Cauldobacter sRNA CC3552: a 106-nucleotide sequence from Brevundimonas sp. BAL3. The base pairs follow the family's consensus structure, which was predicted with RNAalifold.
RNA sequence: GGAGGCGGCGACGCCCCCCCCGACUUGAGAUUGGCGAAAGCCAAUCUGUCGCCUCCGCGCCUCAUUCUCGAUGAUGCCACUUGAAGGCGGCCCGCAGGGGUCGCCU
Number, nucleotide and partner (000 for none) at each position: 001g056002g055003a054004g053005g052006c051007g050008g049009c048010g047011a000012c022013g021014c000015c000016c000017c000018c000019c000020c000021c013022g012023a000024c000025u000026u000027g000028a000029g046030a045031u044032u043033g042034g041035c040036g000037a000038a000039a000040g035041c034042c033043a032044a031045u030046c029047u010048g009049u008050c007051g006052c005053c004054u003055c002056c001057g000058c000059g000060c000061c000062u000063c000064a000065u000066u000067c000068u000069c000070g000071a000072u000073g000074a000075u000076g000077c000078c000079a000080c000081u000082u000083g000084a000085a106086g105087g104088c103089g102090g101091c100092c099093c098094g000095c000096a000097g000098g093099g092100g091101u090102c089103g088104c087105c086106u085
The literature on the family includes a 2008 paper in Mol Microbiol by Landt et al., "Small non-coding RNAs in Caulobacter crescentus". Rfam's curators put it in the seed alignment.